[Rfam]
RNA sequence: CAAAUUUGCUCUUUUAGUAUUUCUCCAGUAGGUUUCCUGAAGGAGGAAUGUCAAA
Numbered sequence: 001c002a003a004a005u006u007u008g009c010u011c012u013u014u015u016a017g018u019a020u021u022u023c024u025c026c027a028g029u030a031g032g033u034u035u036c037c038u039g040a041a042g043g044a045g046g047a048a049u050g051u052c053a054a055a
Stems, first nucleotide, its partner, number of pairs: 031052003034048005